[Rfam]
RNA sequence: AAAAUAUGAAGCACCUCUUCCUGUAUAUUUUCGAAAAUAAGGUUCGAAAGUUUCUACCGGGUACCGUAAAUAUCCGACUACAGGAAGAGGGGUUGGAUUU
Numbered sequence: 001a002a003a004a005u006a007u008g009a010a011g012c013a014c015c016u017c018u019u020c021c022u023g024u025a026u027a028u029u030u031u032c033g034a035a036a037a038u039a040a041g042g043u044u045c046g047a048a049a050g051u052u053u054c055u056a057c058c059g060g061g062u063a064c065c066g067u068a069a070a071u072a073u074c075c076g077a078c079u080a081c082a083g084g085a086a087g088a089g090g091g092g093u094u095g096g097a098u099u100u
Base pairs, nucleotide, nucleotide: 018086019085020084021083022082023081024080025079029049030048031047032046033045034044035043058076059075060074061073062072063071
Description
A member of the RNA family "Purine riboswitch aptamer" from Oceanotoga teriensis, 100 nucleotides long. The base pairs follow the family's consensus structure, which is taken from published work. Its Rfam clan is "Purine riboswitches".